[Rfam]
RNA sequence: UUCUUAUUGGAUGAUGACACCCACAUGUCAUGUUCUGAUUGGUCAAUAGAAACAACAAUUCAUUUUAUCUUUCAUGGAGUUGACAUCCAAUCAGAACACGACAUGUGAUAGCCAUCAUCU
Numbered sequence: 001u002u003c004u005u006a007u008u009g010g011a012u013g014a015u016g017a018c019a020c021c022c023a024c025a026u027g028u029c030a031u032g033u034u035c036u037g038a039u040u041g042g043u044c045a046a047u048a049g050a051a052a053c054a055a056c057a058a059u060u061c062a063u064u065u066u067a068u069c070u071u072u073c074a075u076g077g078a079g080u081u082g083a084c085a086u087c088c089a090a091u092c093a094g095a096a097c098a099c100g101a102c103a104u105g106u107g108a109u110a111g112c113c114a115u116c117a118u119c120u
Stems, first nucleotide, its partner, number of pairs: 022107002025104002029100001031098001033096004038091005
This 120-nucleotide RNA from Glycine max belongs to the Rfam family "MIR1520 microRNA precursor family". Gene Ontology terms of the family: RISC complex and miRNA-mediated post-transcriptional gene silencing. The organism belongs to Glycine subgen. Soja, within Eukaryota. Its Rfam clan is "MIR1520 microRNA precursor clan". A search with the family's covariance model found it, with a score of 100 bits.